[Rfam]
RNA sequence: AUUAAUAUAAAAUAUUGAGGUUCCAAGAUGAUUAACAACAGUAAAAAAUUUUAUUUUUUCUUUAUAAAUGAUCCACAUUAGUUUUGGCUAAUAAAAUGUGGGUCCUCUUUGAUGUUCGUUAAUCAUCUAGGGGAUAAAGAAGACGUCCUCUGGGGACGUCUUUUU
Numbered sequence: 001a002u003u004a005a006u007a008u009a010a011a012a013u014a015u016u017g018a019g020g021u022u023c024c025a026a027g028a029u030g031a032u033u034a035a036c037a038a039c040a041g042u043a044a045a046a047a048a049u050u051u052u053a054u055u056u057u058u059u060c061u062u063u064a065u066a067a068a069u070g071a072u073c074c075a076c077a078u079u080a081g082u083u084u085u086g087g088c089u090a091a092u093a094a095a096a097u098g099u100g101g102g103u104c105c106u107c108u109u110u111g112a113u114g115u116u117c118g119u120u121a122a123u124c125a126u127c128u129a130g131g132g133g134a135u136a137a138a139g140a141a142g143a144c145g146u147c148c149u150c151u152g153g154g155g156a157c158g159u160c161u162u163u164u165u
Base pairs, nucleotide, nucleotide: 028126029125030124031123032122033121040061041060043058044057046056047055070104072102073101074100075099076098077097078096079090080089081088082087130150131149132148133147134146135145
leu/phe leader RNA from Lactococcus: a 165-nucleotide sequence from Lactococcus cremoris. By type it is a cis-regulatory leader. Rfam links the family to the GO term regulation of gene expression.